[Rfam]
RNA sequence: GCGGAGACACAUGUUUCCGUUCACUCCUCACACCACACCCCGCCUGGACUUCGGUUUAGGCGGUU
Numbered sequence: 001g002c003g004g005a006g007a008c009a010c011a012u013g014u015u016u017c018c019g020u021u022c023a024c025u026c027c028u029c030a031c032a033c034c035a036c037a038c039c040c041c042g043c044c045u046g047g048a049c050u051u052c053g054g055u056u057u058a059g060g061c062g063g064u065u
Base pairs, nucleotide, nucleotide: 001020002019003018004017005016006015007014008013041062042061043060044059045058046057047056

The record is a 65-nucleotide RNA from Synechococcus sp. PCC 6312, which matches "Cyanobacterial functional RNA 1" in Rfam. Rfam classes the family as a small RNA. Taxonomically the source falls in Synechococcus (Bacteria, Cyanobacteriota, Synechococcales, Synechococcaceae). The family's consensus secondary structure is taken from published work.